[Rfam]
RNA sequence: UCGAUUAUGUGUAACUGGCGAAACGCGGAUCACCGUGAGGGAGCACAUAAUGACGAAUGCCGUUCGCCUGGGCAGAGGUA
Numbered sequence: 001u002c003g004a005u006u007a008u009g010u011g012u013a014a015c016u017g018g019c020g021a022a023a024c025g026c027g028g029a030u031c032a033c034c035g036u037g038a039g040g041g042a043g044c045a046c047a048u049a050a051u052g053a054c055g056a057a058u059g060c061c062g063u064u065c066g067c068c069u070g071g072g073c074a075g076a077g078g079u080a
Base pairs, nucleotide, nucleotide: 004051005050006049007048008047009046010045011044012043015040016039017068018067019066020065021064025036026035027034028033058074059073060072061071
The record is an 80-nucleotide RNA sequence from Anaerobacillus isosaccharinicus, which matches "ZMP/ZTP riboswitch aptamer (pfl RNA motif)" in Rfam. Pairs were carried over by alignment from the consensus structure, which is taken from published work. NCBI's taxonomy places the organism under Bacteria, Bacilli, Caryophanales, Bacillaceae, Anaerobacillus.